[Rfam]
RNA: Flavo-1 RNA
Organism: Flavobacterium tibetense
RNA sequence: UUUUAGCCCAGAUUAAAAUGGAAAGCUUUUUGUGGUUGUGUGCCAAUUUUUCUUGAUUUGCAAAAGCGACCCAAGAAGCUCUUUGCAAAGCUAUAGAAAAAUGGUGCAAAAGCGCAAAAACUUGUAAUGAAAAGCUGGAAAUAGC
Numbered sequence: 001u002u003u004u005a006g007c008c009c010a011g012a013u014u015a016a017a018a019u020g021g022a023a024a025g026c027u028u029u030u031u032g033u034g035g036u037u038g039u040g041u042g043c044c045a046a047u048u049u050u051u052c053u054u055g056a057u058u059u060g061c062a063a064a065a066g067c068g069a070c071c072c073a074a075g076a077a078g079c080u081c082u083u084u085g086c087a088a089a090g091c092u093a094u095a096g097a098a099a100a101a102u103g104g105u106g107c108a109a110a111a112g113c114g115c116a117a118a119a120a121c122u123u124g125u126a127a128u129g130a131a132a133a134g135c136u137g138g139a140a141a142u143a144g145c
Stems, first nucleotide, its partner, number of pairs: 009137003013133002018128002023123003029118006036111001